[Rfam]
RNA sequence: ACUUAUUCUCAGGGCGGGGUGCGAUUCCCCACCGGCGGUAUCCCAGCAGGCUGGGGAGCCCGCGAGCGCUCUUUUGAUUGAAGAGGUCAGCAGAACUGGUGAGAGACCAGUGCCGACGGUACAGUCCGGAUGAAAGAGGAUAGGG
Number, nucleotide and partner (000 for none) at each position: 001a000002c000003u143004u142005a141006u140007u139008c138009u137010c136011a000012g000013g000014g000015c000016g000017g029018g028019g027020u000021g000022c000023g000024a000025u000026u000027c019028c018029c017030c000031a125032c124033c115034g114035g063036c062037g061038g060039u000040a000041u000042c000043c000044c000045a000046g000047c000048a000049g000050g000051c000052u000053g000054g000055g000056g000057a000058g113059c112060c038061c037062g036063c035064g000065a000066g091067c090068g000069c000070u000071c000072u000073u000074u000075u000076g000077a000078u000079u000080g000081a000082a000083g000084a000085g000086g000087u000088c000089a000090g067091c066092a000093g000094a000095a111096c110097u109098g108099g107100u000101g000102a000103g000104a000105g000106a000107c099108c098109a097110g096111u095112g059113c058114c034115g033116a000117c128118g127119g126120u000121a000122c000123a000124g032125u031126c119127c118128g117129g000130a000131u000132g000133a000134a000135a000136g010137a009138g008139g007140a006141u005142a004143g003144g000145g000
Rfam assigns this 145-nucleotide RNA sequence from Dendrosporobacter quercicolus to the family "FMN riboswitch aptamer (RFN element)".
Rfam links the family to the GO term FMN binding.
From the family's description: The RFN element is a highly conserved domain that is found frequently in the 5'-untranslated regions of prokaryotic mRNAs that encode for flavin mononucleotide (FMN) biosynthesis and transport proteins.